[Rfam]
RNA sequence: AUAGCAGCCUGAAAGGGUGAGGUGGUCAGCCCAGGGUUUUUGAACCCAAAAUUAAAUGCUAGUCUAAGUAAUUCACGUUGCUUAGGCAAGACCCUCAAAUUGACGGGGAACUCCUAAAGCUUCAGACACCAAACUUCAUUUCGAAAGAGUGAGGUGGCCAGGUUAAUAGCCUCGGGUAUGGUAAAAGAUCUGAAGAUGUUACAAUGGACAAUCCGCAGCCAAGGCCCUAACGAGUAUACUUACUCUAUGGGACAGGUUCAGAGACUAGAUGGGGGUCGGUCUCAUAACAUUUCUUUGAGGCUUAAGGUAUAGUCCGCCUUCAAGUGAAAGCUUGUA
Number, nucleotide and partner (000 for none) at each position: 001a000002u000003a000004g000005c000006a000007g000008c000009c000010u000011g000012a000013a000014a000015g000016g000017g000018u000019g000020a000021g000022g000023u000024g000025g000026u000027c000028a000029g000030c000031c000032c000033a000034g000035g000036g000037u000038u000039u000040u000041u000042g000043a000044a000045c000046c000047c000048a000049a000050a000051a000052u000053u000054a000055a000056a000057u000058g000059c000060u000061a000062g000063u000064c000065u000066a000067a000068g000069u000070a000071a000072u000073u000074c000075a000076c000077g000078u000079u000080g000081c000082u000083u000084a000085g000086g000087c000088a000089a000090g277091a276092c275093c274094c273095u000096c271097a270098a000099a000100u000101u217102g216103a000104c215105g214106g213107g212108g000109a000110a000111c000112u208113c207114c206115u000116a000117a000118a000119g000120c000121u000122u000123c000124a000125g000126a000127c000128a000129c000130c000131a000132a000133a000134c000135u000136u000137c000138a000139u000140u000141u000142c000143g000144a000145a000146a000147g000148a000149g000150u000151g000152a000153g000154g000155u000156g000157g000158c000159c000160a000161g000162g000163u000164u000165a000166a000167u000168a000169g000170c000171c000172u000173c000174g000175g000176g000177u000178a000179u000180g000181g000182u000183a000184a000185a000186a000187g000188a000189u000190c000191u000192g000193a000194a000195g000196a000197u000198g000199u000200u000201a000202c000203a000204a000205u000206g114207g113208a112209c000210a000211a000212u107213c106214c105215g104216c102217a101218g257219c256220c000221a000222a000223g000224g000225c251226c250227c249228u000229a000230a000231c000232g245233a244234g243235u242236a241237u000238a000239c000240u000241u236242a235243c234244u233245c232246u000247a000248u000249g227250g226251g225252a000253c000254a000255g000256g219257u218258u000259c000260a000261g315262a000263g314264a313265c312266u311267a310268g000269a000270u097271g096272g000273g094274g093275g092276u091277c090278g000279g301280u300281c299282u298283c297284a296285u000286a294287a000288c000289a000290u000291u000292u000293c000294u286295u000296u284297g283298a282299g281300g280301c279302u000303u000304a000305a000306g000307g000308u000309a000310u267311a266312g265313u264314c263315c261316g000317c000318c000319u000320u000321c334322a333323a332324g331325u330326g000327a000328a000329a000330g325331c324332u323333u322334g321335u000336a000
The record is a 336-nucleotide sequence from Gymnopilus junonius, which matches "Group I catalytic intron" in Rfam.
The base pairs follow the family's consensus structure, which is taken from published work.
Rfam links the family to the GO term Group I intron splicing.
A search with the family's covariance model found it, with a score of 87 bits.
From the family's description: Group I catalytic introns are large self-splicing ribozymes.